[Rfam]
RNA sequence: AAAUCGCUCCAUAAGUUUUGCAACUGUAGCAGUUUUGGCCUCCCAAGAUCAAUUUUUGGUAAAAAAAAAAAAAAAACGUGGUAUCUCACUUAGAGUGUCACGUCAGCGUAAACCGAGUCAAAAUUGACAUUGGAGGCCAAAAUUGCCACAGAUGCAAAACUUAGAGGGCGGAUU
Numbered sequence: 001a002a003a004u005c006g007c008u009c010c011a012u013a014a015g016u017u018u019u020g021c022a023a024c025u026g027u028a029g030c031a032g033u034u035u036u037g038g039c040c041u042c043c044c045a046a047g048a049u050c051a052a053u054u055u056u057u058g059g060u061a062a063a064a065a066a067a068a069a070a071a072a073a074a075a076a077c078g079u080g081g082u083a084u085c086u087c088a089c090u091u092a093g094a095g096u097g098u099c100a101c102g103u104c105a106g107c108g109u110a111a112a113c114c115g116a117g118u119c120a121a122a123a124u125u126g127a128c129a130u131u132g133g134a135g136g137c138c139a140a141a142a143u144u145g146c147c148a149c150a151g152a153u154g155c156a157a158a159a160c161u162u163a164g165a166g167g168g169c170g171g172a173u174u
Stems, first nucleotide, its partner, number of pairs: 001174002004171005012163011024151004029146014044132003076103002079100006
RNA: MIR2619 microRNA precursor family
Organism: Medicago truncatula